[Rfam]
RNA sequence: AAGGGUCAAGUGAGGAUUGAAAACGCAUAGUUCAGAUGAACUUACAUGAUUACAUCUAUUCAGCAUAGUCUUUCGCUCCUAUCUGAUGACCACC
Numbered sequence: 001a002a003g004g005g006u007c008a009a010g011u012g013a014g015g016a017u018u019g020a021a022a023a024c025g026c027a028u029a030g031u032u033c034a035g036a037u038g039a040a041c042u043u044a045c046a047u048g049a050u051u052a053c054a055u056c057u058a059u060u061c062a063g064c065a066u067a068g069u070c071u072u073u074c075g076c077u078c079c080u081a082u083c084u085g086a087u088g089a090c091c092a093c094c
Stems, first nucleotide, its partner, number of pairs: 004091005
Shown here is a 94-nucleotide RNA from Raphanus sativus, a member of the family "Small nucleolar RNA snR60/Z15/Z230/Z193/J17". The base pairs follow the family's consensus structure. Its Rfam clan is "SNORD77 clan". The organism belongs to Raphanus, within Eukaryota. It scores 73 bits against the family's covariance model.